[Rfam]
A member of the RNA family "c-di-AMP riboswitch aptamer (ydaO/yuaA leader)" from Clostridium acidisoli, 123 nucleotides long. The source organism's lineage runs through Bacteria, Bacillota, Eubacteriales, Clostridiaceae and Clostridium acidisoli.

RNA sequence: AUAGGGAAUAAUAUCAAUAGCCUAAGUCAUACGGGGAAACCAUAUUUUGGGGUGAAUCACUUUUAAGUGUAGGUUAUGCCUUUACCGAACCCGUCAGCUAACCUCGUAAUAAAAGGAGGAGUU
Numbered sequence: 001a002u003a004g005g006g007a008a009u010a011a012u013a014u015c016a017a018u019a020g021c022c023u024a025a026g027u028c029a030u031a032c033g034g035g036g037a038a039a040c041c042a043u044a045u046u047u048u049g050g051g052g053u054g055a056a057u058c059a060c061u062u063u064u065a066a067g068u069g070u071a072g073g074u075u076a077u078g079c080c081u082u083u084a085c086c087g088a089a090c091c092c093g094u095c096a097g098c099u100a101a102c103c104u105c106g107u108a109a110u111a112a113a114a115g116g117a118g119g120a121g122u123u
Stems, first nucleotide, its partner, number of pairs: 014109001020028001031107006041049002050092003058069004072086003